RNA sequence: CUAAAGGCUCUUUUAAGAGCCACUACAUUGCACAAAAGAGUUGAUU
Numbered sequence: 001c002u003a004a005a006g007g008c009u010c011u012u013u014u015a016a017g018a019g020c021c022a023c024u025a026c027a028u029u030g031c032a033c034a035a036a037a038g039a040g041u042u043g044a045u046u
Stems, first nucleotide, its partner, number of pairs: 006021006
This 46-nucleotide RNA sequence from Rhipidura dahli belongs to the Rfam family "Histone 3' UTR stem-loop". About the family: The mRNAs of metazoan histone genes lack a poly-A tail. 3' end processing occurs at a site between a highly conserved stem-loop (modelled by this family) and a purine rich region around 20 nts downstream (the histone downstream element, or HDE). Its family is annotated with mRNA 3'-end processing by stem-loop binding and cleavage in the Gene Ontology. The family's RNA type in Rfam is cis-regulatory element.